[Rfam]
RNA sequence: AUGAUUACCCUUACAAAAACACUAACUUUGAUUUCAAUGCAGUAAGUGCUUCUUGUUGGGUAGUUUUU
Numbered sequence: 001a002u003g004a005u006u007a008c009c010c011u012u013a014c015a016a017a018a019a020c021a022c023u024a025a026c027u028u029u030g031a032u033u034u035c036a037a038u039g040c041a042g043u044a045a046g047u048g049c050u051u052c053u054u055g056u057u058g059g060g061u062a063g064u065u066u067u068u
Stems, first nucleotide, its partner, number of pairs: 004064007013056004018050001020048004025043003
Shown here is a 68-nucleotide RNA sequence from Cyclopterus lumpus, a member of the family "miR-430 microRNA precursor family". Its Rfam clan is "mir-290 clan".